This 265-nucleotide sequence from Macrococcus sp. DPC7161 belongs to the Rfam family "Bacterial large signal recognition particle RNA". The family's RNA type in Rfam is non-coding RNA gene. The literature on the family includes a 2003 paper in Nucleic Acids Res by Rosenblad et al., "SRPDB: Signal Recognition Particle Database".
[Rfam]
RNA sequence: CCGUGCUAAGUGGGGAGGUAGCGGUUCCUUGAACUUGAAAUCCGCUUAUGCAAGACCGAAUUCUCUUCUGAGGAUUGUAGGUUGUGAGGUCUGCCCUGAAUACGUAGUGUUGAGAGAGCGGUCCUAACCAAUAUGAACCCAUGAACCAUGUCAGGUCCGGAAGGAAGCAGCAUUAAGUGGUCAUUCGUAUGUGAUUGGGGUAGCCGUUCUUGAGCUGUCGACUUAGGUAACGCUUGUGUCUACACUUCGAAGUUGAGAUGCACGG
Numbered sequence: 001c002c003g004u005g006c007u008a009a010g011u012g013g014g015g016a017g018g019u020a021g022c023g024g025u026u027c028c029u030u031g032a033a034c035u036u037g038a039a040a041u042c043c044g045c046u047u048a049u050g051c052a053a054g055a056c057c058g059a060a061u062u063c064u065c066u067u068c069u070g071a072g073g074a075u076u077g078u079a080g081g082u083u084g085u086g087a088g089g090u091c092u093g094c095c096c097u098g099a100a101u102a103c104g105u106a107g108u109g110u111u112g113a114g115a116g117a118g119c120g121g122u123c124c125u126a127a128c129c130a131a132u133a134u135g136a137a138c139c140c141a142u143g144a145a146c147c148a149u150g151u152c153a154g155g156u157c158c159g160g161a162a163g164g165a166a167g168c169a170g171c172a173u174u175a176a177g178u179g180g181u182c183a184u185u186c187g188u189a190u191g192u193g194a195u196u197g198g199g200g201u202a203g204c205c206g207u208u209c210u211u212g213a214g215c216u217g218u219c220g221a222c223u224u225a226g227g228u229a230a231c232g233c234u235u236g237u238g239u240c241u242a243c244a245c246u247u248c249g250a251a252g253u254u255g256a257g258a259u260g261c262a263c264g265g
Stems, first nucleotide, its partner, number of pairs: 001265006007258001010056002012030006019023001034054004039049001063257003068252002072248003076244001078242005084237005092229002096226004101221001104219001106216003114211009123199005129191002132189005139180004148173004156165003